Description:
This 141-nucleotide RNA from Gossypium arboreum belongs to the Rfam family "MIR7502 microRNA precursor family". The match comes from Rfam's covariance-model search (73 bits). Taxonomically the source falls in Gossypium (Eukaryota, Euphyllophyta, Mesangiospermae, malvids).

[Rfam]
RNA sequence: UGUUAAAAAUUUCAUCCAUUUCUGCUGUUAAAAGUUAGUCCCUGUACGUUGUAAGUAUAUGUGACAUGUCACAUGUCACUUUUUGGUGAUUUUGUUAGCCAUGUCAGUUCUUAAUAGCACAAAUGAGUGGGAUUUUUAAUA
Numbered sequence: 001u002g003u004u005a006a007a008a009a010u011u012u013c014a015u016c017c018a019u020u021u022c023u024g025c026u027g028u029u030a031a032a033a034g035u036u037a038g039u040c041c042c043u044g045u046a047c048g049u050u051g052u053a054a055g056u057a058u059a060u061g062u063g064a065c066a067u068g069u070c071a072c073a074u075g076u077c078a079c080u081u082u083u084u085g086g087u088g089a090u091u092u093u094g095u096u097a098g099c100c101a102u103g104u105c106a107g108u109u110c111u112u113a114a115u116a117g118c119a120c121a122a123a124u125g126a127g128u129g130g131g132a133u134u135u136u137u138a139a140u141a
Stems, first nucleotide, its partner, number of pairs: 002140014018124004023119004028114004033109001